[Rfam]
The family of this 193-nucleotide sequence from Olea europaea is "MIR168 microRNA precursor family". Its family is annotated with miRNA-mediated post-transcriptional gene silencing and RISC complex in the Gene Ontology. Lineage of the source: Eukaryota > Spermatophyta > Mesangiospermae > Oleaceae > Olea europaea. The family has 10 seed sequences and 518 matches in Rfam 15.1. It scores 88 bits against the family's covariance model. The base pairs follow the family's consensus structure, which was predicted with WAR.
RNA sequence: GUUGCAGUGGUCUCAGAUUCGCUUGGUGCAGGUCGGGAACAUUGUUCGCUUACUACGGCGUCGUUUUCACGUCGAUGAGCGAUCCGAACUUUGUGAAUACAAAUGUCUACCAUAUGCUUGUAAAUGAUGUCGUUGUUUUUGGCGAAAAUCAUGUUCCUGCCUUGCAUCAACUGAAUCGGAGGCCGCGGUGAAU
Numbered sequence: 001g002u003u004g005c006a007g008u009g010g011u012c013u014c015a016g017a018u019u020c021g022c023u024u025g026g027u028g029c030a031g032g033u034c035g036g037g038a039a040c041a042u043u044g045u046u047c048g049c050u051u052a053c054u055a056c057g058g059c060g061u062c063g064u065u066u067u068c069a070c071g072u073c074g075a076u077g078a079g080c081g082a083u084c085c086g087a088a089c090u091u092u093g094u095g096a097a098u099a100c101a102a103a104u105g106u107c108u109a110c111c112a113u114a115u116g117c118u119u120g121u122a123a124a125u126g127a128u129g130u131c132g133u134u135g136u137u138u139u140u141g142g143c144g145a146a147a148a149u150c151a152u153g154u155u156c157c158u159g160c161c162u163u164g165c166a167u168c169a170a171c172u173g174a175a176u177c178g179g180a181g182g183c184c185g186c187g188g189u190g191a192a193u
Stems, first nucleotide, its partner, number of pairs: 013180002017176004023170010034159005040153002